This 79-nucleotide RNA sequence from Cnephaeus nilssonii belongs to the Rfam family "mir-9198 microRNA precursor family". Gene Ontology terms of the family: RISC complex and miRNA-mediated post-transcriptional gene silencing. Lineage of the source: Eukaryota > Vertebrata > Chiroptera > Vespertilionidae > Cnephaeus.
RNA sequence: GCUGCUGCUCGCACCUGCUGCUGGCACCCAGCACUGGUCCUGAUCGCUCGGUGCUGUCAGAGGGUGCGAGCAGCAGCUG
Numbered sequence: 001g002c003u004g005c006u007g008c009u010c011g012c013a014c015c016u017g018c019u020g021c022u023g024g025c026a027c028c029c030a031g032c033a034c035u036g037g038u039c040c041u042g043a044u045c046g047c048u049c050g051g052u053g054c055u056g057u058c059a060g061a062g063g064g065u066g067c068g069a070g071c072a073g074c075a076g077c078u079g
Base pairs, nucleotide, nucleotide: 004074005073006072007071008070009069010068011067012066013065014064015063016062018060019059020058022056023055024054025053026052027051028050